[Rfam]
RNA sequence: UAGCAGGACCGGGCCCCUCUGGCGCGUGCAGCAAUGCCGCGUGAUGUCGGACUGCGACG
Numbered sequence: 001u002a003g004c005a006g007g008a009c010c011g012g013g014c015c016c017c018u019c020u021g022g023c024g025c026g027u028g029c030a031g032c033a034a035u036g037c038c039g040c041g042u043g044a045u046g047u048c049g050g051a052c053u054g055c056g057a058c059g
Base pairs, nucleotide, nucleotide: 006053007052009050010049011048012047022042023041024040025039026038028037029036030035
Annotation:
The record is a 59-nucleotide RNA sequence from Erythrobacter sp. EC-HK427, which matches "terC RNA" in Rfam. By type it is a cis-regulatory element. The organism belongs to Erythrobacter, within Bacteria. The family has 129 seed sequences and 1,112 matches in Rfam 15.1. The base pairs follow the family's consensus structure, which is taken from published work. A search with the family's covariance model found it, with a score of 51 bits.